RNA sequence: ACAGGUUUGAGGCCACAGCAGAAGUCUCAUGACACAGUCCUGUCAGAUUCCAACAAAUCUGCAAAUUCUGCU
Numbered sequence: 001a002c003a004g005g006u007u008u009g010a011g012g013c014c015a016c017a018g019c020a021g022a023a024g025u026c027u028c029a030u031g032a033c034a035c036a037g038u039c040c041u042g043u044c045a046g047a048u049u050c051c052a053a054c055a056a057a058u059c060u061g062c063a064a065a066u067u068c069u070g071c072u
Base pairs, nucleotide, nucleotide: 009040011039012038013037017072018071019070020069021068022067023066024035025034044061045060046059047058048057049056
Dot-bracket structure: ........[.[[[...(((((((((........)).]]]]...((((((......))))))....)))))))

The record is a 72-nucleotide sequence from Crocodylus porosus, which matches "Mammalian CPEB3 ribozyme" in Rfam. Its family is annotated with RNA nuclease activity in the Gene Ontology. The base pairs follow the family's consensus structure, which is taken from published work.